[Rfam]
RNA: Small nucleolar RNA snoR104
RNA sequence: GGGUAACAUAGAACUCCGAAUGUUUCCUGAUAGACUCUUCCAACAACAACUUCUGGAAUUUCCUACUUGUAGACCUUGAGAAGAGGCUGCAAGUCUCGAUUUGUUGCCUGAUACACAA
Numbered sequence: 001g002g003g004u005a006a007c008a009u010a011g012a013a014c015u016c017c018g019a020a021u022g023u024u025u026c027c028u029g030a031u032a033g034a035c036u037c038u039u040c041c042a043a044c045a046a047c048a049a050c051u052u053c054u055g056g057a058a059u060u061u062c063c064u065a066c067u068u069g070u071a072g073a074c075c076u077u078g079a080g081a082a083g084a085g086g087c088u089g090c091a092a093g094u095c096u097c098g099a100u101u102u103g104u105u106g107c108c109u110g111a112u113a114c115a116c117a118a
Stems, first nucleotide, its partner, number of pairs: 001028003005024005052111002065094008074085001076083001